This 89-nucleotide RNA from Trifolium medium belongs to the Rfam family "Small nucleolar RNA snoR8a". NCBI's taxonomy places the organism under Eukaryota, Gunneridae, fabids, Fabales, Trifolium. Gene Ontology terms of the family: RNA processing and nucleolus. Rfam classes the family as a C/D-box small nucleolar RNA. Rfam 15.1 lists 956 matches to the family in 245 species. It scores 90 bits against the family's covariance model. The family's consensus secondary structure was predicted with WAR. On this family, see Brown et al., RNA 2001: "Multiple snoRNA gene clusters from Arabidopsis".
RNA sequence: UUUGAUGUGAUGAUUAUAAAUAAUUCCUCGUACUCAAUGCUAUUGCCAUGGCAUGACAGACACCUUACACCCAUAGAAUAUGAGCAUCA
Numbered sequence: 001u002u003u004g005a006u007g008u009g010a011u012g013a014u015u016a017u018a019a020a021u022a023a024u025u026c027c028u029c030g031u032a033c034u035c036a037a038u039g040c041u042a043u044u045g046c047c048a049u050g051g052c053a054u055g056a057c058a059g060a061c062a063c064c065u066u067a068c069a070c071c072c073a074u075a076g077a078a079u080a081u082g083a084g085c086a087u088c089a
Stems, first nucleotide, its partner, number of pairs: 003089002006086002